Description
DUF3800-IV RNA: a 91-nucleotide RNA sequence from Brevibacterium ravenspurgense. By type it is a small RNA.
[Rfam]
RNA sequence: AGGAGCGGGUUAGCACUCGCCCGGAUGCUCGGCGGCGCACAACGCCGCACUCCUUAAGUGGAUCGACUCCGGGGAGUGCUAAUCCGCUCCU
Number, nucleotide and partner (000 for none) at each position: 001a091002g090003g089004a088005g087006c086007g085008g084009g083010u082011u081012a080013g079014c078015a077016c076017u075018c074019g000020c073021c072022c071023g070024g069025a068026u000027g000028c000029u066030c065031g000032g048033c047034g046035g045036c044037g043038c000039a000040c000041a000042a000043c037044g036045c035046c034047g033048c032049a000050c000051u062052c061053c060054u000055u000056a000057a000058g000059u000060g053061g052062a051063u000064c000065g030066a029067c000068u025069c024070c023071g022072g021073g020074g018075a017076g016077u015078g014079c013080u012081a011082a010083u009084c008085c007086g006087c005088u004089c003090c002091u001